A member of the RNA family "mir-980 microRNA precursor family" from Heliothis virescens, 75 nucleotides long. Rfam links the family to the GO terms RISC complex and miRNA-mediated post-transcriptional gene silencing. It scores 48 bits against the family's covariance model. Taxonomically the source falls in Heliothis (Eukaryota, Opisthokonta, Hexapoda, Endopterygota). The family has 8 seed sequences and 121 matches in Rfam 15.1.
[Rfam]
RNA sequence: UGUCGGUUGCGGCUCAUCGUAUGGCAGUUUGCUGUGUUUAAUUGCCAGCUGCCUAGCGAAGGGCAACAAAUGACU
Numbered sequence: 001u002g003u004c005g006g007u008u009g010c011g012g013c014u015c016a017u018c019g020u021a022u023g024g025c026a027g028u029u030u031g032c033u034g035u036g037u038u039u040a041a042u043u044g045c046c047a048g049c050u051g052c053c054u055a056g057c058g059a060a061g062g063g064c065a066a067c068a069a070a071u072g073a074c075u
Stems, first nucleotide, its partner, number of pairs: 004072002007069003012064004017059004023053002028048002031045002